[Rfam]
RNA: Eukaryotic large subunit ribosomal RNA, nucleotides 2195 to 2416
RNA sequence: AAGUCAGCAAGUCAGAUCCGUAACUUUGGGAUAAGGAUUGACUCGAAGGGCUGGGUCGGUCGGGCUGGGGUGCUAAGCGGGGCUGGGCACGUGCCACGGCUGGAUGAGGCGCCGCCCCUCCUGGGGACCAUUGGCGACUCUGGUCGCGCGUCGAGCCCUUCCUGUGGAUCGCCCAGCUGCGGUGCCUGUUUAGCAGCUGACCUUAGAACUGGUGUGGACCAG
Numbered sequence: 001a002a003g004u005c006a007g008c009a010a011g012u013c014a015g016a017u018c019c020g021u022a023a024c025u026u027u028g029g030g031a032u033a034a035g036g037a038u039u040g041a042c043u044c045g046a047a048g049g050g051c052u053g054g055g056u057c058g059g060u061c062g063g064g065c066u067g068g069g070g071u072g073c074u075a076a077g078c079g080g081g082g083c084u085g086g087g088c089a090c091g092u093g094c095c096a097c098g099g100c101u102g103g104a105u106g107a108g109g110c111g112c113c114g115c116c117c118c119u120c121c122u123g124g125g126g127a128c129c130a131u132u133g134g135c136g137a138c139u140c141u142g143g144u145c146g147c148g149c150g151u152c153g154a155g156c157c158c159u160u161c162c163u164g165u166g167g168a169u170c171g172c173c174c175a176g177c178u179g180c181g182g183u184g185c186c187u188g189u190u191u192a193g194c195a196g197c198u199g200a201c202c203u204u205a206g207a208a209c210u211g212g213u214g215u216g217g218a219c220c221a222g
Stems, first nucleotide, its partner, number of pairs: 015039005024029001040210001043207002046204003049198005055187001059183004064177003068173002077165004085158004090153002095148001097146007211215001